[Rfam]
Nucleotides: 109
Stems, first nucleotide, its partner, number of pairs: 007096002010093001011059004017029005036053005065090003071084004
Number, partner (000 for none) and nucleotide at each position: 001000a002000g003000g004000c005000c006000a007096u008095c009000c010093c011059c012058g013057g014056g015000g016000a017029g018028c019027c020026a021025u022000g023000c024000u025021g026020u027019g028018g029017c030000u031000g032000a033000g034000a035000g036053g037052g038051a039050u040049g041000g042000g043000u044000a045000g046000c047000g048000c049040c050039a051038u052037c053036c054000g055000a056014c057013c058012c059011g060000u061000c062000g063000a064000a065090c066089c067088u068000g069000a070000a071084c072083c073082g074081g075000c076000u077000c078000a079000u080000a081074c082073c083072g084071g085000c086000g087000g088067a089066g090065g091000g092000a093010g094000u095008g096007g097000c098000g099000g100000c101000c102000u103000g104000a105000c106000c107000u108000g109000u